The record is a 139-nucleotide RNA from Selenihalanaerobacter shriftii, which matches "PyrR binding site" in Rfam.
Gene Ontology terms of the family: pyrimidine nucleobase transport and pyrimidine nucleobase biosynthetic process.
For this family Rfam cites "Molecular recognition of pyr mRNA by the Bacillus subtilis attenuation regulatory protein PyrR" (Bonner et al., Nucleic Acids Res, 2001).
Taxonomically the source falls in Selenihalanaerobacter (Bacteria, Clostridia, Halanaerobiales, Halobacteroidaceae).
RNA sequence: AAGUCCUUUAAAUUAGUCCUGUGAGACUAAUAAGGGAAGUUGAAAUCUUUACAUUUAGUCUAACUAUUUAGGUUAGAUUAUAUCUAAAUGUAGAUAAAUUUUGGCCUUCUUAUUCCUCGCGGGAUGGGAAGGCUUUUUU
Numbered sequence: 001a002a003g004u005c006c007u008u009u010a011a012a013u014u015a016g017u018c019c020u021g022u023g024a025g026a027c028u029a030a031u032a033a034g035g036g037a038a039g040u041u042g043a044a045a046u047c048u049u050u051a052c053a054u055u056u057a058g059u060c061u062a063a064c065u066a067u068u069u070a071g072g073u074u075a076g077a078u079u080a081u082a083u084c085u086a087a088a089u090g091u092a093g094a095u096a097a098a099u100u101u102u103g104g105c106c107u108u109c110u111u112a113u114u115c116c117u118c119g120c121g122g123g124a125u126g127g128g129a130a131g132g133c134u135u136u137u138u139u
Base pairs, nucleotide, nucleotide: 004036005035006034007033008032013030014029015028016027017026018025053083054082056080057079058078059077060076061075062074063073064072065071103134104133105132106131107130108129109128110127111126112125113124114123115122116121

Rfam classes the family as a cis-regulatory element.